[Rfam]
RNA sequence: AAAGCUCUGUCGAUCCGAAGGCUUGCGUUCCUACGUGGGCUCCUUUGUAGGUGAGAUGGGGCUAU
Dot-bracket structure: (.(((((((((...((...(((((((((....)))))))))........))...))))))))).)
A member of the RNA family "DUF3800-VIII RNA", 65 nucleotides long.
Rfam's curators write: Bacteroidetes, Cyanobacteria, Firmicutes, Planctomycetes (1 example), Proteobacteria, Tenericutes (1 example).
The family's RNA type in Rfam is small RNA.